A member of the RNA family "U4atac minor spliceosomal RNA" from Bemisia tabaci, 119 nucleotides long.

[Rfam]
RNA sequence: CCAAUCCUUGUCUGGGAGAGCAUUAUACUCAAUGAUCGGUUAGUGAGAGUAUAGUUGCUGAAACCAAGAUAAACUGUUUCGCAUCACUCAUUUCAUGGGUAGGUGCAAUUUUUGGAAAC
Numbered sequence: 001c002c003a004a005u006c007c008u009u010g011u012c013u014g015g016g017a018g019a020g021c022a023u024u025a026u027a028c029u030c031a032a033u034g035a036u037c038g039g040u041u042a043g044u045g046a047g048a049g050u051a052u053a054g055u056u057g058c059u060g061a062a063a064c065c066a067a068g069a070u071a072a073a074c075u076g077u078u079u080c081g082c083a084u085c086a087c088u089c090a091u092u093u094c095a096u097g098g099g100u101a102g103g104u105g106c107a108a109u110u111u112u113u114g115g116a117a118a119c
Stems, first nucleotide, its partner, number of pairs: 005019002008016002020058003024053007037043001081106005086100006
The base pairs follow the family's consensus structure, which is taken from published work. Clan: U4 clan. Rfam's curators write: U4atac is an essential component of the minor U12-type spliceosome complex which is required for removal of the rarer class of eukaryotic introns (AT-AC, U12-type). Rfam links the family to the GO terms mRNA 5'-splice site recognition, spliceosomal tri-snRNP complex assembly and U4atac snRNP. A search with the family's covariance model found it, with a score of 78 bits.